[Rfam]
This 89-nucleotide RNA belongs to the Rfam family "Streptomyces RNA 3202". About the family: Identified by deep sequencing of transcriptome at the end of exponential growth phase. Appears smaller on northern blot than sequencing transcript. The pairing is the family consensus, mapped onto this sequence. On this family, see Vockenhuber et al., RNA Biol 2011: "Deep sequencing-based identification of small non-coding RNAs in Streptomyces coelicolor". It scores 60 bits against the family's covariance model.
RNA sequence: CCAGGUCCCGACGCUCUCCCCCCGGCGCCGGGACCCUUCCCGAGCCGGGUCUGGCGCCUUCCCCCCCGGGCGCCGGUCCCGGCUCCCUU
Numbered sequence: 001c002c003a004g005g006u007c008c009c010g011a012c013g014c015u016c017u018c019c020c021c022c023c024g025g026c027g028c029c030g031g032g033a034c035c036c037u038u039c040c041c042g043a044g045c046c047g048g049g050u051c052u053g054g055c056g057c058c059u060u061c062c063c064c065c066c067c068g069g070g071c072g073c074c075g076g077u078c079c080c081g082g083c084u085c086c087c088u089u
Stems, first nucleotide, its partner, number of pairs: 005034006012027003042085008051076009